Shown here is a 33-nucleotide RNA, a member of the family "L31-Firmicutes ribosomal protein leader". On this family, see Eckert and Weinberg, BMC Microbiol 2020: "Discovery of 20 novel ribosomal leader candidates in bacteria and archaea".
RNA sequence: CUUUGAACUAUAGGUAGUUCAAGGCGGAAGGAG
Numbered sequence: 001c002u003u004u005g006a007a008c009u010a011u012a013g014g015u016a017g018u019u020c021a022a023g024g025c026g027g028a029a030g031g032a033g
Stems, first nucleotide, its partner, number of pairs: 001024010
It is annotated as a cis-regulatory leader. The family is grouped with related families in Rfam's "Ribosomal Protein L31 Leader clan". It is one of the family's seed sequences.